[Rfam]
RNA sequence: GGCGUAUUUUGCGAUGGCGGAGCUCGACCGCCGAGCGAGGUGAUGGUGUCGUUCAUCGACGCGCAUCGUGAGGUGUACGGGGUCGAGCCGAUCUGCCGGGUUCUGCCGAUCGCCCCA
Numbered sequence: 001g002g003c004g005u006a007u008u009u010u011g012c013g014a015u016g017g018c019g020g021a022g023c024u025c026g027a028c029c030g031c032c033g034a035g036c037g038a039g040g041u042g043a044u045g046g047u048g049u050c051g052u053u054c055a056u057c058g059a060c061g062c063g064c065a066u067c068g069u070g071a072g073g074u075g076u077a078c079g080g081g082g083u084c085g086a087g088c089c090g091a092u093c094u095g096c097c098g099g100g101u102u103c104u105g106c107c108g109a110u111c112g113c114c115c116c117a
Base pairs, nucleotide, nucleotide: 016032017031018030019029020028079116080115081114082113089112090111092109093108095106096105098103
RNA: ALIL pseudoknot
Organism: Sphingomonas rubra